RNA sequence: AGUUGUUGUCGGUUGGGUGAAUAACACUACAUUUAUUACUCCCUAUCUCGCAACAUCGAGAGCC
Numbered sequence: 001a002g003u004u005g006u007u008g009u010c011g012g013u014u015g016g017g018u019g020a021a022u023a024a025c026a027c028u029a030c031a032u033u034u035a036u037u038a039c040u041c042c043c044u045a046u047c048u049c050g051c052a053a054c055a056u057c058g059a060g061a062g063c064c
Base pairs, nucleotide, nucleotide: 002057005054006053007052008051009050015043016042017041